RNA sequence: UUGAAGGUGUGGAGACUAGAGUCCCUUCUAUAUCCACAGACAGGUACGGCACAGGCAGCGGCAGUGCAGCUUUUCCACUGUCCCACCAGUGUGCCUCAGUCCUAGCCUAGGAGGACCACGGUGAGGGUAAGAGAGCUGUUCAGUCUCCAUGCCCUUCGAUCUUUUAAUACU
Numbered sequence: 001u002u003g004a005a006g007g008u009g010u011g012g013a014g015a016c017u018a019g020a021g022u023c024c025c026u027u028c029u030a031u032a033u034c035c036a037c038a039g040a041c042a043g044g045u046a047c048g049g050c051a052c053a054g055g056c057a058g059c060g061g062c063a064g065u066g067c068a069g070c071u072u073u074u075c076c077a078c079u080g081u082c083c084c085a086c087c088a089g090u091g092u093g094c095c096u097c098a099g100u101c102c103u104a105g106c107c108u109a110g111g112a113g114g115a116c117c118a119c120g121g122u123g124a125g126g127g128u129a130a131g132a133g134a135g136c137u138g139u140u141c142a143g144u145c146u147c148c149a150u151g152c153c154c155u156u157c158g159a160u161c162u163u164u165u166a167a168u169a170c171u
Base pairs, nucleotide, nucleotide: 002158003157004156006153007152010149011148012147013146014145015144016143017142019140020139023135025133026132027131029130031129032128033127034126038103039102040100046096049094050093051092052091053090060082061081062080063079064078107125108124110122113119
The record is a 171-nucleotide sequence from Equus caballus, which matches "TUC338" in Rfam.
Rfam's curators put it in the seed alignment.
The organism belongs to Equus, within Eukaryota.
The family's consensus secondary structure was predicted with WAR.
Rfam classes the family as a cis-regulatory element.